[Rfam]
Nucleotides: 098
Base pairs, nucleotide, nucleotide: 018084019083020082021081022080023079024078025077030046031045032044033043034042056074057073058072059071060070061069
Number, partner (000 for none) and nucleotide at each position: 001000a002000u003000a004000c005000u006000u007000a008000a009000c010000a011000a012000u013000c014000a015000a016000g017000u018084u019083a020082u021081c022080u023079a024078u025077a026000u027000a028000u029000c030046g031045u032044c033043g034042a035000a036000a037000u038000a039000a040000g041000g042034u043033c044032g045031a046030c047000a048000g049000u050000a051000u052000c053000u054000a055000c056074c057073c058072u059071g060070a061069g062000c063000c064000a065000u066000a067000a068000a069061u070060u071059c072058a073057g074056g075000a076000c077025u078024a079023u080022a081021g082020g083019u084018a085000u086000c087000a088000g089000a090000c091000g092000u093000c094000a095000u096000a097000a098000u
The record is a 98-nucleotide RNA sequence from Lactobacillus acidophilus, which matches "Purine riboswitch aptamer" in Rfam. It scores 64 bits against the family's covariance model.